RNA sequence: UGGAACAAGCAGAAGCACCCGCUUCUCACCUGAUUGACGCCAUCGGCAGUCGACAGGUUUUACGAUGCAAAACGGCGAAUCGCUUUUUAGUCGCUUGAUUCGUAAAGUGUGGGUGUGGUAUGCACUCACACUUUUUUUGUUGU
Numbered sequence: 001u002g003g004a005a006c007a008a009g010c011a012g013a014a015g016c017a018c019c020c021g022c023u024u025c026u027c028a029c030c031u032g033a034u035u036g037a038c039g040c041c042a043u044c045g046g047c048a049g050u051c052g053a054c055a056g057g058u059u060u061u062a063c064g065a066u067g068c069a070a071a072a073c074g075g076c077g078a079a080u081c082g083c084u085u086u087u088u089a090g091u092c093g094c095u096u097g098a099u100u101c102g103u104a105a106a107g108u109g110u111g112g113g114u115g116u117g118g119u120a121u122g123c124a125c126u127c128a129c130a131c132u133u134u135u136u137u138u139g140u141u142g143u
Base pairs, nucleotide, nucleotide: 011026012025013024014023015022016021028058029057030056036051037050038049039047040046108130109129110128111127112126113125114124115123116122117121
Overview: A member of the RNA family "Ribosomal protein L20 leader" from Thermolongibacillus altinsuensis, 143 nucleotides long. Gene Ontology term of the family: regulation of gene expression. This family is a putative r-protein leader autoregulatory structure found in B. subtilis and other low-GC Gram-positive bacteria. It is located in the 5' untranslated regions of mRNAs encoding initiation factor 3 followed by ribosomal proteins L35 and L20 (infC-rpmI-rplT). A Rho-independent transcription terminator structure that is probably involved in regulation is included at the 3' end. The organism belongs to Thermolongibacillus, within Bacteria. The base pairs follow the family's consensus structure, which was predicted with CMfinder.